[Rfam]
RNA sequence: UCGACAAAAGGAAAUGGUGUUCUUCCUUACCCAACCGCUCCCUGAGGGAUGCUGAUGACGCCUGGUUAAGU
Numbered sequence: 001u002c003g004a005c006a007a008a009a010g011g012a013a014a015u016g017g018u019g020u021u022c023u024u025c026c027u028u029a030c031c032c033a034a035c036c037g038c039u040c041c042c043u044g045a046g047g048g049a050u051g052c053u054g055a056u057g058a059c060g061c062c063u064g065g066u067u068a069a070g071u
Base pairs, nucleotide, nucleotide: 010026011025012024013023016062017061018060019059020058021057037052038051039049040048041047042046
Dot-bracket structure: .........[[[[..((((((.]]]]..........((((((...)))).))....)))))).........